RNA sequence: AGACCCAGAGAGAGAGACAGGGUCUGAUCCGCAGCCUCAGUGGCAGCUAUUGAUCAGUAUUUGCCUCUCUCUUUCUCUCCC
Numbered sequence: 001a002g003a004c005c006c007a008g009a010g011a012g013a014g015a016g017a018c019a020g021g022g023u024c025u026g027a028u029c030c031g032c033a034g035c036c037u038c039a040g041u042g043g044c045a046g047c048u049a050u051u052g053a054u055c056a057g058u059a060u061u062u063g064c065c066u067c068u069c070u071c072u073u074u075c076u077c078u079c080c081c
Stems, first nucleotide, its partner, number of pairs: 008073009018063003024057006033048003
Rfam assigns this 81-nucleotide RNA sequence from Myotis lucifugus to the family "mir-574 microRNA precursor family".
For this family Rfam cites "MicroRNA identity and abundance in porcine skeletal muscles determined by deep sequencing" (Nielsen et al., Anim Genet, 2010).
Rfam links the family to the GO terms RISC complex and miRNA-mediated post-transcriptional gene silencing.
The family's consensus secondary structure was predicted with RNAalifold.
The source organism's lineage runs through Eukaryota, Teleostomi, Boreoeutheria, Laurasiatheria and Myotis.
Its Rfam clan is "mir-574 microRNA precursor clan".
It scores 81 bits against the family's covariance model.